[Rfam]
RNA sequence: AUACUUACCUGGACGGGGUCAAUGGAUGAUCCUGACGAUCCAUGGCCUAGGGUAGUGACCUCCAUUGCACUUGGGAGGGGUGCUACCCUAAGGUCUCCCCAAGUUGGGAGAGCCUACGUCAUAAUUUGUGGCAGCGGGGGCCUGCGUUCGCGCGGCCCCUAC
Numbered sequence: 001a002u003a004c005u006u007a008c009c010u011g012g013a014c015g016g017g018g019u020c021a022a023u024g025g026a027u028g029a030u031c032c033u034g035a036c037g038a039u040c041c042a043u044g045g046c047c048u049a050g051g052g053u054a055g056u057g058a059c060c061u062c063c064a065u066u067g068c069a070c071u072u073g074g075g076a077g078g079g080g081u082g083c084u085a086c087c088c089u090a091a092g093g094u095c096u097c098c099c100c101a102a103g104u105u106g107g108g109a110g111a112g113c114c115u116a117c118g119u120c121a122u123a124a125u126u127u128g129u130g131g132c133a134g135c136g137g138g139g140g141c142c143u144g145c146g147u148u149c150g151c152g153c154g155g156c157c158c159c160u161a162c
Stems, first nucleotide, its partner, number of pairs: 012120004016048006023042005049089003055083003059079003062075002091115003094111003098107002136160004143154004
This 162-nucleotide RNA from Gossypium harknessii belongs to the Rfam family "U1 spliceosomal RNA". Taxonomically the source falls in Gossypium (Eukaryota, Spermatophyta, Pentapetalae, rosids).